The family of this 83-nucleotide RNA sequence from Arenivirga flava is "ZMP/ZTP riboswitch aptamer (pfl RNA motif)".
RNA sequence: UCACCUCAUCGCGACUGGCGUUCAGAUGGGCAACCAUCGGGGAGCGAUGAACUCGGCAGGGACCGCACGCCUGGGCCCCCGUC
Numbered sequence: 001u002c003a004c005c006u007c008a009u010c011g012c013g014a015c016u017g018g019c020g021u022u023c024a025g026a027u028g029g030g031c032a033a034c035c036a037u038c039g040g041g042g043a044g045c046g047a048u049g050a051a052c053u054c055g056g057c058a059g060g061g062a063c064c065g066c067a068c069g070c071c072u073g074g075g076c077c078c079c080c081g082u083c
Stems, first nucleotide, its partner, number of pairs: 003053001006050007015041002017071005026037004060078002063075002
Lineage of the source: Bacteria > Bacillati > Actinomycetes > Micrococcales > Arenivirga.